[Rfam]
Nucleotides: 112
Base pairs, nucleotide, nucleotide: 001112002111008105009104010103011102013100014099016097018095019093020092035075036074037073038072048060049059
Number, partner (000 for none) and nucleotide at each position: 001112a002111u003000g004000c005000a006000a007000u008105a009104u010103g011102a012000u013100a014099a015000a016097u017000a018095g019093g020092c021000c022000c023000g024000u025000c026000g027000g028000c029000u030000u031000c032000u033000g034000g035075g036074g037073c038072a039000a040000a041000a042000u043000u044000g045000u046000c047000g048060g049059c050000u051000c052000u053000u054000u055000g056000u057000g058000c059049g060048u061000g062000a063000u064000c065000g066000c067000u068000g069000g070000u071000g072038u073037g074036c075035u076000g077000a078000c079000a080000a081000u082000c083000g084000c085000a086000c087000u088000g089000c090000c091000g092020g093019u094000a095018c096000c097016g098000g099014u100013u101000a102011u103010c104009g105008u106000c107000a108000g109000u110000a111002a112001u
Background
Shown here is a 112-nucleotide RNA from Drosophila grimshawi, a member of the family "Potassium channel RNA editing signal". This family represents a group of sequences related to the human potassium channel Kv1.1 hairpin element which directs the efficient modification of an adenosine to inosine by an adenosine deaminase acting on RNA (ADAR). The ADAR modification causes an isoleucine/valine recoding event which lies in the ion-conducting pore of the potassium channel. It is thought that this editing event targets the process of fast inactivation and allows a more rapid recovery from inactivation at negative potentials.